Description:
Shown here is a 106-nucleotide RNA sequence from Pseudolysobacter antarcticus, a member of the family "t44 RNA". The source organism's lineage runs through Bacteria, Pseudomonadati, Gammaproteobacteria, Lysobacterales and Pseudolysobacter. A reference for the family is Tjaden et al. (2002), "Transcriptome analysis of Escherichia coli using high-density oligonucleotide probe arrays", Nucleic Acids Res.
[Rfam]
RNA sequence: CGCGCAUUUGCGCAAAUCCGCACACGUAUCGUCACCGUGCACCGGGGUGCCGCGCUACUUUAACAGAGCAGCGCGGUCGGACACAGCGGAUACGUGGAGGCUCAAC
Numbered sequence: 001c002g003c004g005c006a007u008u009u010g011c012g013c014a015a016a017u018c019c020g021c022a023c024a025c026g027u028a029u030c031g032u033c034a035c036c037g038u039g040c041a042c043c044g045g046g047g048u049g050c051c052g053c054g055c056u057a058c059u060u061u062a063a064c065a066g067a068g069c070a071g072c073g074c075g076g077u078c079g080g081a082c083a084c085a086g087c088g089g090a091u092a093c094g095u096g097g098a099g100g101c102u103c104a105a106c
Stems, first nucleotide, its partner, number of pairs: 023096008035086001037084003042080003049077008